[Rfam]
RNA sequence: AACAAUGAUAGAGGCGCGGCAAGUAAGAGUACCUUACGGAGAGGCAUCGUGGAAGUAAGGGAAAGGGAUUGCUGCCGAAGGGCCGGUUCCGGCGGGAACAGGUUGCUGGGCCUGGGGUGAAUAAUUUCAGGACUGUCGUUGCGGUGCGGCGUAUGCCGGUGCAGCGGAGAGCUAUCUCAACU
Numbered sequence: 001a002a003c004a005a006u007g008a009u010a011g012a013g014g015c016g017c018g019g020c021a022a023g024u025a026a027g028a029g030u031a032c033c034u035u036a037c038g039g040a041g042a043g044g045c046a047u048c049g050u051g052g053a054a055g056u057a058a059g060g061g062a063a064a065g066g067g068a069u070u071g072c073u074g075c076c077g078a079a080g081g082g083c084c085g086g087u088u089c090c091g092g093c094g095g096g097a098a099c100a101g102g103u104u105g106c107u108g109g110g111c112c113u114g115g116g117g118u119g120a121a122u123a124a125u126u127u128c129a130g131g132a133c134u135g136u137c138g139u140u141g142c143g144g145u146g147c148g149g150c151g152u153a154u155g156c157c158g159g160u161g162c163a164g165c166g167g168a169g170a171g172c173u174a175u176c177u178c179a180a181c182u
Stems, first nucleotide, its partner, number of pairs: 007176005016075007024067001032060006079107002082104001083102002086099005108134002111131008136167007
The family of this 182-nucleotide RNA sequence from Succiniclasticum ruminis is "Lysine riboswitch aptamer". Pairs were carried over by alignment from the consensus structure, which is taken from published work.